Rfam assigns this 80-nucleotide RNA from Paenibacillus antarcticus to the family "ZMP/ZTP riboswitch aptamer (pfl RNA motif)". The literature on the family includes a 2015 paper in Structure by Ren et al., "Global RNA Fold and Molecular Recognition for a pfl Riboswitch Bound to ZMP, a Master Regulator of One-Carbon Metabolism". Its family is annotated with regulation of purine nucleotide biosynthetic process and one-carbon metabolic process in the Gene Ontology.
RNA sequence: AAUACUGUGUGUAACUGGCGUAAACAUGGAAACCCAUGAGGGAGCACACAGAUUAAAAGCCGUUCGCCUGGGCAAAGUAU
Numbered sequence: 001a002a003u004a005c006u007g008u009g010u011g012u013a014a015c016u017g018g019c020g021u022a023a024a025c026a027u028g029g030a031a032a033c034c035c036a037u038g039a040g041g042g043a044g045c046a047c048a049c050a051g052a053u054u055a056a057a058a059g060c061c062g063u064u065c066g067c068c069u070g071g072g073c074a075a076a077g078u079a080u
Base pairs, nucleotide, nucleotide: 005051006050007049008048009047010046011045012044015041016040017068018067019066020065026037027036028035029034059073060072061071
Dot-bracket structure: ....((((((((..(([[[[.....((((....))))..))..)))))))).......(((...]]]]..))).......